The family of this 145-nucleotide sequence from Gossypium anomalum is "MIR7502 microRNA precursor family". The source organism's lineage runs through Eukaryota, Streptophyta, Gunneridae, malvids and Gossypium. It scores 113 bits against the family's covariance model.
[Rfam]
RNA sequence: UGUUAAAAAUUCCAUCCAUUUUUAUUGUUAAAAACUUAUGUGAGUGAUGGAAUAACCAGAUAGUUACAAGUGACAUGCCACUUGUACCUCAUGAUGACGUACAAGGACCAAUUUUUAACAAUAAAAAUAGAUAGAAAUUUUAACU
Numbered sequence: 001u002g003u004u005a006a007a008a009a010u011u012c013c014a015u016c017c018a019u020u021u022u023u024a025u026u027g028u029u030a031a032a033a034a035c036u037u038a039u040g041u042g043a044g045u046g047a048u049g050g051a052a053u054a055a056c057c058a059g060a061u062a063g064u065u066a067c068a069a070g071u072g073a074c075a076u077g078c079c080a081c082u083u084g085u086a087c088c089u090c091a092u093g094a095u096g097a098c099g100u101a102c103a104a105g106g107a108c109c110a111a112u113u114u115u116u117a118a119c120a121a122u123a124a125a126a127a128u129a130g131a132u133a134g135a136a137a138u139u140u141u142a143a144c145u
Stems, first nucleotide, its partner, number of pairs: 002144007010136003014132003018128009028118006